[Rfam]
RNA sequence: UGGACAGAUUAUUGUAUUCGACUGUAUUCACGGCGUGAAAAUAGGAGAUUACACUAUUUUUAAAAGGGAAAGAAAAUCAAUUAACAUGAUAGAUUCCU
Numbered sequence: 001u002g003g004a005c006a007g008a009u010u011a012u013u014g015u016a017u018u019c020g021a022c023u024g025u026a027u028u029c030a031c032g033g034c035g036u037g038a039a040a041a042u043a044g045g046a047g048a049u050u051a052c053a054c055u056a057u058u059u060u061u062a063a064a065a066g067g068g069a070a071a072g073a074a075a076a077u078c079a080a081u082u083a084a085c086a087u088g089a090u091a092g093a094u095u096c097c098u
Base pairs, nucleotide, nucleotide: 002097003096004095009092010091011090012089013088014087015086017084018083020082021081023079024078026077027076028075031072034067036065038060039059040058041057042056043055044054
Dot-bracket structure: .(((....(((((((.((.((.((.(((..(..(.(.(((((((.........)))))))....).)....)..))))).)))).)))))))..))).
The record is a 98-nucleotide RNA from Nicotiana sylvestris, which matches "MIR6152 microRNA precursor family" in Rfam. The source organism's lineage runs through Eukaryota, Viridiplantae, Streptophytina, Magnoliopsida and Nicotiana. Its family is annotated with miRNA-mediated post-transcriptional gene silencing and RISC complex in the Gene Ontology.